RNA: Small nucleolar RNA SNORA12
Organism: Cervus elaphus
RNA sequence: GAUUGUGGUAGUUUUCUUUCUGGCACAUGUGUUAAGUUUUCAAAUGGACUUGACUCUGCCACAUAUGUUAUAUAGGAGCUGGCAGAGGCUUGAUGACAAAGAGAUCUCUUUCUAGCCUUUCCUGCAGCAGAGACAGGCUUCCACAUGU
Numbered sequence: 001g002a003u004u005g006u007g008g009u010a011g012u013u014u015u016c017u018u019u020c021u022g023g024c025a026c027a028u029g030u031g032u033u034a035a036g037u038u039u040u041c042a043a044a045u046g047g048a049c050u051u052g053a054c055u056c057u058g059c060c061a062c063a064u065a066u067g068u069u070a071u072a073u074a075g076g077a078g079c080u081g082g083c084a085g086a087g088g089c090u091u092g093a094u095g096a097c098a099a100a101g102a103g104a105u106c107u108c109u110u111u112c113u114a115g116c117c118u119u120u121c122c123u124g125c126a127g128c129a130g131a132g133a134c135a136g137g138c139u140u141c142c143a144c145a146u147g148u
Stems, first nucleotide, its partner, number of pairs: 005062007022050002026046003030042002075141006081090003107133005